[Rfam]
RNA: anti ponA RNA
RNA sequence: GAAAUUGUCGUCCUCGGCUGACAGCAAUGCCUGAAUGAAGUGUGGGGGAAUAUCCGCAAAACGGAUUGGAGACCGCCGCAUUUCGCCGAACUCGGCGAUCAGCUUGCCGUCACUGCUGUACACCCUCAGCGGUAUCUGCAACUGGAUGCUUCGCAGUGCCUCGACCGACGGCAGGCUGGGACUAAGAUACAGAAACGCGCCGCUCAGACCGAGGACGGCUGCGCAAAUGACUGCGACGAAAGACCACCAGAAGAACUUCAGCAGGCGUAUCAAGGCGUUGGGGUGUCCAGUUGG
Numbered sequence: 001g002a003a004a005u006u007g008u009c010g011u012c013c014u015c016g017g018c019u020g021a022c023a024g025c026a027a028u029g030c031c032u033g034a035a036u037g038a039a040g041u042g043u044g045g046g047g048g049a050a051u052a053u054c055c056g057c058a059a060a061a062c063g064g065a066u067u068g069g070a071g072a073c074c075g076c077c078g079c080a081u082u083u084c085g086c087c088g089a090a091c092u093c094g095g096c097g098a099u100c101a102g103c104u105u106g107c108c109g110u111c112a113c114u115g116c117u118g119u120a121c122a123c124c125c126u127c128a129g130c131g132g133u134a135u136c137u138g139c140a141a142c143u144g145g146a147u148g149c150u151u152c153g154c155a156g157u158g159c160c161u162c163g164a165c166c167g168a169c170g171g172c173a174g175g176c177u178g179g180g181a182c183u184a185a186g187a188u189a190c191a192g193a194a195a196c197g198c199g200c201c202g203c204u205c206a207g208a209c210c211g212a213g214g215a216c217g218g219c220u221g222c223g224c225a226a227a228u229g230a231c232u233g234c235g236a237c238g239a240a241a242g243a244c245c246a247c248c249a250g251a252a253g254a255a256c257u258u259c260a261g262c263a264g265g266c267g268u269a270u271c272a273a274g275g276c277g278u279u280g281g282g283g284u285g286u287c288c289a290g291u292u293g294g
Stems, first nucleotide, its partner, number of pairs: 010172003014168004019163003025045001027043004047084005054078001057075001062069001086095003102159002105155003108148004115142001117140004122135001124132002176290005183283001186279002197268005202262003206258002218234002221232001244253001